[Rfam]
Rfam assigns this 99-nucleotide RNA sequence from Mikania micrantha to the family "MIR398 microRNA precursor family".
The base pairs follow the family's consensus structure, which was predicted with WAR.
It scores 78 bits against the family's covariance model.
For this family Rfam cites "Conservation and divergence of microRNAs and their functions in Euphorbiaceous plants" (Zeng et al., Nucleic Acids Res, 2010).
Rfam 15.1 lists 627 matches to the family in 211 species.
RNA sequence: AGAAAUCCAAUAGGUGCGGCAUGAGAACACAUGACAUGUGACAUGCUUAAUAACAAGUGAUUGUUUCAUGUGUUCUCAGGUCGCCCCUGUAGGAUUUUC
Numbered sequence: 001a002g003a004a005a006u007c008c009a010a011u012a013g014g015u016g017c018g019g020c021a022u023g024a025g026a027a028c029a030c031a032u033g034a035c036a037u038g039u040g041a042c043a044u045g046c047u048u049a050a051u052a053a054c055a056a057g058u059g060a061u062u063g064u065u066u067c068a069u070g071u072g073u074u075c076u077c078a079g080g081u082c083g084c085c086c087c088u089g090u091a092g093g094a095u096u097u098u099c
Stems, first nucleotide, its partner, number of pairs: 007093002011089004016084004023077010